[Rfam]
RNA sequence: GGCGAGACUAGAGUCACAUCUUGAUUUGUGAUUGUCUUGGUGUGCUUUGAGUUCUCGUAGAUCAAAACCUUGGCUUAUUCAUUGGCUCGUGCUACGUUAGCUGUGCCAAUCGCCAGCUUUGGGACAGUA
Numbered sequence: 001g002g003c004g005a006g007a008c009u010a011g012a013g014u015c016a017c018a019u020c021u022u023g024a025u026u027u028g029u030g031a032u033u034g035u036c037u038u039g040g041u042g043u044g045c046u047u048u049g050a051g052u053u054c055u056c057g058u059a060g061a062u063c064a065a066a067a068c069c070u071u072g073g074c075u076u077a078u079u080c081a082u083u084g085g086c087u088c089g090u091g092c093u094a095c096g097u098u099a100g101c102u103g104u105g106c107c108a109a110u111c112g113c114c115a116g117c118u119u120u121g122g123g124a125c126a127g128u129a
Stems, first nucleotide, its partner, number of pairs: 002058005007052003012046002015044006023036003069121001072118004081110005088103002091101002
The family of this 129-nucleotide RNA from Erpetoichthys calabaricus is "Small nucleolar RNA SNORA3/SNORA45 family". It scores 64 bits against the family's covariance model. Rfam 15.1 lists 2,080 matches to the family in 639 species. The members of this family belong to the H/ACA class of snoRNAs which are thought to guide the sites of modification of uridines to pseudouridines. This family includes mouse snoMBI-28 and human homologues ACA3 (SNORA3) and ACA3-2 (SNORA45). Both ACA3 and ACA3-2 share the same host gene. MBI-28, ACA3 and ACA3-2 are all predicted to guide the pseudouridylation of residues in 28S rRNA. The family's consensus secondary structure was predicted with RNAalifold. Its family is annotated with RNA processing and nucleolus in the Gene Ontology. NCBI's taxonomy places the organism under Eukaryota, Metazoa, Craniata, Gnathostomata, Erpetoichthys. It is annotated as an H/ACA-box small nucleolar RNA.